[Rfam]
Record summary
The record is a 172-nucleotide RNA sequence from Kluyvera genomosp. 3, which matches "sok antitoxin (CssrC)" in Rfam. It is annotated as an antitoxin RNA. Rfam links the family to the GO term mRNA binding. From the family's description: Also identified in Shigella as CssrC. The match comes from Rfam's covariance-model search (97 bits).

RNA sequence: GGGUGCUUGAGACUAUUUGUUUUGAGCAUGACGUGAAAGGCAGAUAGACAAAAGCCCAGAUAACAUUCAGCGUCCGGCAAGACGCUUAACAUUAAUCUGAGGCCCCUAAAUGAAAAGCAACAUUAGGUUAGCCUCUUACCGACCUUCGGUCAAGGAGAAGUAGGCUAUGAAG
Numbered sequence: 001g002g003g004u005g006c007u008u009g010a011g012a013c014u015a016u017u018u019g020u021u022u023u024g025a026g027c028a029u030g031a032c033g034u035g036a037a038a039g040g041c042a043g044a045u046a047g048a049c050a051a052a053a054g055c056c057c058a059g060a061u062a063a064c065a066u067u068c069a070g071c072g073u074c075c076g077g078c079a080a081g082a083c084g085c086u087u088a089a090c091a092u093u094a095a096u097c098u099g100a101g102g103c104c105c106c107u108a109a110a111u112g113a114a115a116a117g118c119a120a121c122a123u124u125a126g127g128u129u130a131g132c133c134u135c136u137u138a139c140c141g142a143c144c145u146u147c148g149g150u151c152a153a154g155g156a157g158a159a160g161u162a163g164g165c166u167a168u169g170a171a172g
Stems, first nucleotide, its partner, number of pairs: 001057001003056001005055004011049001013047011026034002058098004062093002066089002099135005106127002109124004139164002143160001